The family of this 71-nucleotide RNA from Nicotiana sylvestris is "MIR6151 microRNA precursor family".
NCBI's taxonomy places the organism under Eukaryota, Viridiplantae, Streptophyta, Solanales, Nicotiana.
The base pairs follow the family's consensus structure, which was predicted with RNAalifold.
[Rfam]
RNA sequence: AGAUGCUGGAUGAGUUUAAGGCGUUGGAUUGAUUUCACUUAAUCCGAGCCCUACGUUCAUCAAGAACUCGU
Numbered sequence: 001a002g003a004u005g006c007u008g009g010a011u012g013a014g015u016u017u018a019a020g021g022c023g024u025u026g027g028a029u030u031g032a033u034u035u036c037a038c039u040u041a042a043u044c045c046g047a048g049c050c051c052u053a054c055g056u057u058c059a060u061c062a063a064g065a066a067c068u069c070g071u
Base pairs, nucleotide, nucleotide: 004066006064007063009061010060011059012058013057014056015055017053018052020050021049022048024047025046026045027044028043029042030041031040032039
Record summary:
A search with the family's covariance model found it, with a score of 75 bits.